[Rfam]
RNA sequence: UUCGGUCCUCGGUAGUGAUGUCCGGAAAAAAGUUCUUUUCCGUGCGUCUCGAUCGAUGACCGGG
Numbered sequence: 001u002u003c004g005g006u007c008c009u010c011g012g013u014a015g016u017g018a019u020g021u022c023c024g025g026a027a028a029a030a031a032g033u034u035c036u037u038u039u040c041c042g043u044g045c046g047u048c049u050c051g052a053u054c055g056a057u058g059a060c061c062g063g064g
Stems, first nucleotide, its partner, number of pairs: 001064007009056005017048005023042007

Notes
This 64-nucleotide RNA sequence belongs to the Rfam family "Actino-pnp RNA".